[Rfam]
RNA: RNase E 5' UTR element
RNA sequence: UUUUCCGCGUUGAGACCUGUAAGAACAAGGAAUUUUGCGGAAUUACCAAUUUUGCCUGAAUGUUCAUCAACGCAGCAAUGGCGUAAGACGUUUUGUACUUUCAGGCAGUUAGCGGGCUGCGGGUUGCAGUCUGGCCGGUAAAUGGAAGCUUCUCUGGCGAAAACAUUCCCAGGCAGUUCCCCUAUAAACAGCGCUGUUUUUCCGUUUGAAAUACAGGCUACCGACACGCUGCGCCUCUCAGCAAGCGACAACCGUGAGGUUGACGACUUAGCGAAUAGUCACGAGGCCAUCGGUUCACAUCCGGUCAGCGAUUACCUUGCCCGCAGUUCUGUCGUCAA
Numbered sequence: 001u002u003u004u005c006c007g008c009g010u011u012g013a014g015a016c017c018u019g020u021a022a023g024a025a026c027a028a029g030g031a032a033u034u035u036u037g038c039g040g041a042a043u044u045a046c047c048a049a050u051u052u053u054g055c056c057u058g059a060a061u062g063u064u065c066a067u068c069a070a071c072g073c074a075g076c077a078a079u080g081g082c083g084u085a086a087g088a089c090g091u092u093u094u095g096u097a098c099u100u101u102c103a104g105g106c107a108g109u110u111a112g113c114g115g116g117c118u119g120c121g122g123g124u125u126g127c128a129g130u131c132u133g134g135c136c137g138g139u140a141a142a143u144g145g146a147a148g149c150u151u152c153u154c155u156g157g158c159g160a161a162a163a164c165a166u167u168c169c170c171a172g173g174c175a176g177u178u179c180c181c182c183u184a185u186a187a188a189c190a191g192c193g194c195u196g197u198u199u200u201u202c203c204g205u206u207u208g209a210a211a212u213a214c215a216g217g218c219u220a221c222c223g224a225c226a227c228g229c230u231g232c233g234c235c236u237c238u239c240a241g242c243a244a245g246c247g248a249c250a251a252c253c254g255u256g257a258g259g260u261u262g263a264c265g266a267c268u269u270a271g272c273g274a275a276u277a278g279u280c281a282c283g284a285g286g287c288c289a290u291c292g293g294u295u296c297a298c299a300u301c302c303g304g305u306c307a308g309c310g311a312u313u314a315c316c317u318u319g320c321c322c323g324c325a326g327u328u329c330u331g332u333c334g335u336c337a338a
Stems, first nucleotide, its partner, number of pairs: 003042006016030003052108008063097001065095002070091003075082002114329011132307007144180004153173005190219003194216004199211004220294005233287005246265002249262005